The family of this 38-nucleotide RNA sequence from Mesorhizobium sp. 8 is "THF-II riboswitch (folE RNA)". Lineage of the source: Bacteria > Pseudomonadati > Alphaproteobacteria > Hyphomicrobiales > Mesorhizobium. A reference for the family is Xu et al. (2023), "Structural insights into translation regulation by the THF-II riboswitch", Nucleic Acids Res. The family's RNA type in Rfam is cis-regulatory element. Pairs were carried over by alignment from the consensus structure, which is taken from published work.

RNA sequence: CCGUUCAACUCGUCCCUUCGCGCAAGGGACUACGGGAG
Numbered sequence: 001c002c003g004u005u006c007a008a009c010u011c012g013u014c015c016c017u018u019c020g021c022g023c024a025a026g027g028g029a030c031u032a033c034g035g036g037a038g
Stems, first nucleotide, its partner, number of pairs: 001035004012030007